[Rfam]
RNA sequence: AGAGAGAAUCUGUAAAGCUCAGGAGGGAUAGCGCCGUGAAAGAAAUGGGAUAUGAACCAUUAAUGGCGCUAUCUAUCCUGAGUUUCAUGGGUUACUCUU
Number, nucleotide and partner (000 for none) at each position: 001a000002g000003a000004g000005a000006g000007a000008a000009u000010c090011u000012g000013u000014a000015a000016a084017g083018c082019u081020c080021a079022g078023g077024a076025g000026g074027g073028a072029u071030a070031g069032c068033g067034c066035c065036g000037u000038g000039a000040a000041a000042g000043a000044a000045a000046u000047g000048g000049g000050a000051u000052a000053u000054g000055a000056a000057c000058c000059a000060u000061u000062a000063a000064u000065g035066g034067c033068g032069c031070u030071a029072u028073c027074u026075a000076u024077c023078c022079u021080g020081a019082g018083u017084u016085u000086c000087a000088u000089g000090g010091g000092u000093u000094a000095c000096u000097c000098u000099u000